[Rfam]
RNA sequence: CUUCGCUGGGGAGUAGCCGGCUUUCCGUCUCGCGGAAAGCGCUCACGUCAACACACUCGGUCCAUCAGGCCGUGGCGUGAGCAGCCAUAACGGGUUGGCAAGACCAUCGAUGGAACGCGCCUGAAGGUCGGGAGGCGCCUUCCGUCGCAUCUUCUUGCCCGACCAGAGCGCU
Numbered sequence: 001c002u003u004c005g006c007u008g009g010g011g012a013g014u015a016g017c018c019g020g021c022u023u024u025c026c027g028u029c030u031c032g033c034g035g036a037a038a039g040c041g042c043u044c045a046c047g048u049c050a051a052c053a054c055a056c057u058c059g060g061u062c063c064a065u066c067a068g069g070c071c072g073u074g075g076c077g078u079g080a081g082c083a084g085c086c087a088u089a090a091c092g093g094g095u096u097g098g099c100a101a102g103a104c105c106a107u108c109g110a111u112g113g114a115a116c117g118c119g120c121c122u123g124a125a126g127g128u129c130g131g132g133a134g135g136c137g138c139c140u141u142c143c144g145u146c147g148c149a150u151c152u153u154c155u156u157g158c159c160c161g162a163c164c165a166g167a168g169c170g171c172u
Stems, first nucleotide, its partner, number of pairs: 021039003041082010058072005083172003088167001
Dot-bracket structure: ....................(((.............))).((((((((((.......(((((.....)))))))))))))))(((..(..............................................................................)..)))
RNA: Manganese Mn2+ riboswitch aptamer (yybP-ykoY)
Organism: Caballeronia concitans